Rfam assigns this 115-nucleotide sequence from Arthrobacter sp. CAU 1506 to the family "SAM (S-adenosyl methionine) riboswitch aptamer".

[Rfam]
RNA sequence: AAUCACGAGCGCCAACUUCUCAGCCCUGGCUGGUUGGCCGGCAACCCUCUACCGUAGCGGGGUGCUCCAGGUGAUGAUUCGGCCCGCCGGGUUUGUCGGCAGGCAAGUACGCGUA
Numbered sequence: 001a002a003u004c005a006c007g008a009g010c011g012c013c014a015a016c017u018u019c020u021c022a023g024c025c026c027u028g029g030c031u032g033g034u035u036g037g038c039c040g041g042c043a044a045c046c047c048u049c050u051a052c053c054g055u056a057g058c059g060g061g062g063u064g065c066u067c068c069a070g071g072u073g074a075u076g077a078u079u080c081g082g083c084c085c086g087c088c089g090g091g092u093u094u095g096u097c098g099g100c101a102g103g104c105a106a107g108u109a110c111g112c113g114u115a
Stems, first nucleotide, its partner, number of pairs: 001079004009039001011038006022031002040066003045062003049057002082104003086100005
The family's consensus secondary structure is taken from published work.